[Rfam]
A member of the RNA family "sodF sRNA", 89 nucleotides long.
RNA sequence: ACGUCCUGCUCGUGAUCGUCUUCUCAACCUUCACCUGCAGGCGGUACAACGAAGGGCUCCCGCGAGGACGUGACUCGCGGGAGCCCUUC
Number, nucleotide and partner (000 for none) at each position: 001a000002c043003g042004u000005c041006c040007u039008g038009c037010u000011c000012g034013u033014g032015a031016u000017c000018g028019u027020c000021u000022u000023c000024u000025c000026a000027a019028c018029c000030u000031u015032c014033a013034c012035c000036u000037g009038c008039a007040g006041g005042c003043g002044g000045u000046a000047c000048a000049a000050c000051g089052a088053a087054g086055g085056g084057c083058u082059c081060c080061c079062g078063c077064g076065a075066g074067g000068a000069c000070g000071u000072g000073a000074c066075u065076c064077g063078c062079g061080g060081g059082a058083g057084c056085c055086c054087u053088u052089c051
Rfam classes the family as a small RNA. It scores 92 bits against the family's covariance model. On this family, see Kim et al., Nucleic Acids Res 2014: "Inverse regulation of Fe- and Ni-containing SOD genes by a Fur family regulator Nur through small RNA processed from 3'UTR of the sodF mRNA". Rfam links the family to the GO terms mRNA binding, negative regulation of translation and regulation of mRNA stability.